ODC internal ribosome entry site (IRES): a 129-nucleotide sequence from Microcebus murinus. The organism belongs to Microcebus, within Eukaryota. On this family, see Pyronnet et al., Cell Mol Life Sci 2005: "Alternative splicing facilitates internal ribosome entry on the ornithine decarboxylase mRNA". Rfam links the family to the GO term ribosome binding.
RNA sequence: GUUUCCACUGUUGGUCUGAGGGCACGCGAUUCCUGGAGAAUUGCCUUUGUGAGAAGCUGGAAAUAUUUCUUUUAAAUUCCAUCUCUUAGUUUUCCAAUUUGUUGCAUUUUAGAGGAACAUUAAGGAACC
Numbered sequence: 001g002u003u004u005c006c007a008c009u010g011u012u013g014g015u016c017u018g019a020g021g022g023c024a025c026g027c028g029a030u031u032c033c034u035g036g037a038g039a040a041u042u043g044c045c046u047u048u049g050u051g052a053g054a055a056g057c058u059g060g061a062a063a064u065a066u067u068u069c070u071u072u073u074a075a076a077u078u079c080c081a082u083c084u085c086u087u088a089g090u091u092u093u094c095c096a097a098u099u100u101g102u103u104g105c106a107u108u109u110u111a112g113a114g115g116a117a118c119a120u121u122a123a124g125g126a127a128c129c
Stems, first nucleotide, its partner, number of pairs: 006060001010057003015052002017049008026041001066127006077117004